[Rfam]
Background:
This 90-nucleotide sequence from Bucorvus abyssinicus belongs to the Rfam family "mir-7 microRNA precursor family". Pairs were carried over by alignment from the consensus structure, which was predicted with PFOLD. Rfam's curators write: This family represents the microRNA (miRNA) precursor mir-7.
RNA sequence: AGGCCUGGCUCUGUGUGGAAGACUAGUGAUUUUGUUGUUCUGCUCUCUAAAGGUGACAACAAAUCAUAGCCUGCCACCCAGCCCAGGCCC
Numbered sequence: 001a002g003g004c005c006u007g008g009c010u011c012u013g014u015g016u017g018g019a020a021g022a023c024u025a026g027u028g029a030u031u032u033u034g035u036u037g038u039u040c041u042g043c044u045c046u047c048u049a050a051a052g053g054u055g056a057c058a059a060c061a062a063a064u065c066a067u068a069g070c071c072u073g074c075c076a077c078c079c080a081g082c083c084c085a086g087g088c089c090c
Stems, first nucleotide, its partner, number of pairs: 002089005008084001011081003015077004020072002023069002026067007034060006
A reference for the family is Ambros (2001), "microRNAs: tiny regulators with great potential", Cell. Gene Ontology terms of the family: RISC complex and miRNA-mediated post-transcriptional gene silencing.